[Rfam]
RNA sequence: AAGUGUGCGGUGAUGAGGCUAUUUGUGGACUAGAGUUUCUGAUCCGGGUUCUUCUUCCCAUAUUCUGAUUACAAACCCUUGGCUGUCUGAGCACAUUA
Dot-bracket structure: .(((((((.............................((...(..(((........)))..)....))......................))))))).
The record is a 98-nucleotide RNA from Castanea mollissima, which matches "Small nucleolar RNA Z157/R69/R10" in Rfam. Clan: SNORD52 clan. By type it is a C/D-box small nucleolar RNA.